[Rfam]
A member of the RNA family "Bacterial large subunit ribosomal RNA" from Scardovia inopinata, 231 nucleotides of a longer RNA.
Pairs were carried over by alignment from the consensus structure, which is taken from published work.
Gene Ontology terms of the family: structural constituent of ribosome and ribosome.
RNA sequence: GAGUCAGUGGCAUGUGGCGAGGUUAACCUGUGUGGGGGAGCCGUAGCGAAAGCGAGUGUGAAGAGCGCGUGGUUAGUCGCAUGUUCUGGACCCGAAGCGGGAUGAUCUAGCCGUGAGCAGGGUGAAGCGCGGGUGAGACCGUGUGGAGGCCCGAACCCACCUAGGUUGAAAACUGGGGGGAUGACUUGUGGUUAGGGGUGAAAGGCCAAUCAAAUUCCGUGAUAGCUGGUU
Numbered sequence: 001g002a003g004u005c006a007g008u009g010g011c012a013u014g015u016g017g018c019g020a021g022g023u024u025a026a027c028c029u030g031u032g033u034g035g036g037g038g039a040g041c042c043g044u045a046g047c048g049a050a051a052g053c054g055a056g057u058g059u060g061a062a063g064a065g066c067g068c069g070u071g072g073u074u075a076g077u078c079g080c081a082u083g084u085u086c087u088g089g090a091c092c093c094g095a096a097g098c099g100g101g102a103u104g105a106u107c108u109a110g111c112c113g114u115g116a117g118c119a120g121g122g123u124g125a126a127g128c129g130c131g132g133g134u135g136a137g138a139c140c141g142u143g144u145g146g147a148g149g150c151c152c153g154a155a156c157c158c159a160c161c162u163a164g165g166u167u168g169a170a171a172a173c174u175g176g177g178g179g180g181a182u183g184a185c186u187u188g189u190g191g192u193u194a195g196g197g198g199u200g201a202a203a204g205g206c207c208a209a210u211c212a213a214a215u216u217c218c219g220u221g222a223u224a225g226c227u228g229g230u231u
Base pairs, nucleotide, nucleotide: 005088006087007086009085010084011083012082013081014080015079016078017077018076021042022041023040024039027036028035029034046053047052056068057067058066059065091229092228094226098219099218100217101216102215103214107195108194109193110192111191112190113189114188115187116186117185118183120152121151122150123149127144128143129142130141131140132139156180157179158178160177161176162175163174164173197207198206199205